[Rfam]
RNA sequence: CUUCACCGAGCCCAGCCACAGCGGCCCGUCGGCACGGUCCUGGCCGUAGGUGGCCAGCAGCGCCUGCGCCUC
Numbered sequence: 001c002u003u004c005a006c007c008g009a010g011c012c013c014a015g016c017c018a019c020a021g022c023g024g025c026c027c028g029u030c031g032g033c034a035c036g037g038u039c040c041u042g043g044c045c046g047u048a049g050g051u052g053g054c055c056a057g058c059a060g061c062g063c064c065u066g067c068g069c070c071u072c
Base pairs, nucleotide, nucleotide: 015025016024017023032067033066035062036061040057041056042055044053045052046051
Source information:
The family of this 72-nucleotide RNA sequence from Actinoplanes awajinensis is "ASpks TB sRNA". The organism belongs to Actinoplanes awajinensis, within Bacteria. Rfam classes the family as an antisense RNA. Pairs were carried over by alignment from the consensus structure, which is taken from published work.